[Rfam]
RNA sequence: UUAAAAUUCAGCCUUCUCUUCCCAGUUCUUCCCAGAGUCAAGAAAAGCUGGGUUAAGAGGGUGGAAAAAAAAACAA
Number, nucleotide and partner (000 for none) at each position: 001u000002u000003a000004a000005a000006a000007u000008u000009c000010a000011g000012c000013c000014u059015u058016c057017u056018c000019u000020u000021c052022c051023c050024a049025g048026u000027u000028c000029u044030u043031c042032c000033c000034a000035g000036a000037g000038u000039c000040a000041a000042g031043a030044a029045a000046a000047g000048c025049u024050g023051g022052g021053u000054u000055a000056a017057g016058a015059g014060g000061g000062u000063g000064g000065a000066a000067a000068a000069a000070a000071a000072a000073a000074c000075a000076a000
RNA: mir-320 microRNA precursor family